[Rfam]
Shown here is a 111-nucleotide RNA from Fulvia fulva, a member of the family "U5 spliceosomal RNA".
By type it is a spliceosomal small nuclear RNA.
U5 RNA is a component of both types of known spliceosome.
Pairs were carried over by alignment from the consensus structure, which is taken from published work.
The organism belongs to Fulvia, within Eukaryota.
RNA sequence: GACGGCGCGGUUGGGUUAAUCAGCUUUCACCUUGCCUUUUACCAGAUGAAACCUUGGUCCACCGCAACAAGCCGCAUUCUCAAUCUUUGGGAUCUUCAGAUCGAGUAAAUU
Numbered sequence: 001g002a003c004g005g006c007g008c009g010g011u012u013g014g015g016u017u018a019a020u021c022a023g024c025u026u027u028c029a030c031c032u033u034g035c036c037u038u039u040u041a042c043c044a045g046a047u048g049a050a051a052c053c054u055u056g057g058u059c060c061a062c063c064g065c066a067a068c069a070a071g072c073c074g075c076a077u078u079c080u081c082a083a084u085c086u087u088u089g090g091g092a093u094c095u096u097c098a099g100a101u102c103g104a105g106u107a108a109a110u111u
Stems, first nucleotide, its partner, number of pairs: 003074004008064004013059001015058004025051005031045002095109002098106001
Dot-bracket structure: ..((((.((((.(.((((......(((((.((...........)).)))))...))))).))))......))))....................((.(.......).))..